Rfam assigns this 89-nucleotide RNA sequence from Medicago truncatula to the family "MIR2617 microRNA precursor family". Lineage of the source: Eukaryota > Spermatophyta > Magnoliopsida > Hologalegina > Medicago. A search with the family's covariance model found it, with a score of 63 bits. Gene Ontology terms of the family: RISC complex and miRNA-mediated post-transcriptional gene silencing.

[Rfam]
RNA sequence: AUGUAGUGUGACAUGCCCGUUUGGGUUUUACUAUAAUUGCUGAAAUAUUAUUAUUUAAUUGAUUUUGGGAAACAGGGUGUUACAUUAGC
Dot-bracket structure: ...(((((((((((.((.(((.................................................))).)))))))))))))..
Numbered sequence: 001a002u003g004u005a006g007u008g009u010g011a012c013a014u015g016c017c018c019g020u021u022u023g024g025g026u027u028u029u030a031c032u033a034u035a036a037u038u039g040c041u042g043a044a045a046u047a048u049u050a051u052u053a054u055u056u057a058a059u060u061g062a063u064u065u066u067g068g069g070a071a072a073c074a075g076g077g078u079g080u081u082a083c084a085u086u087a088g089c
Stems, first nucleotide, its partner, number of pairs: 004087011016076002019073003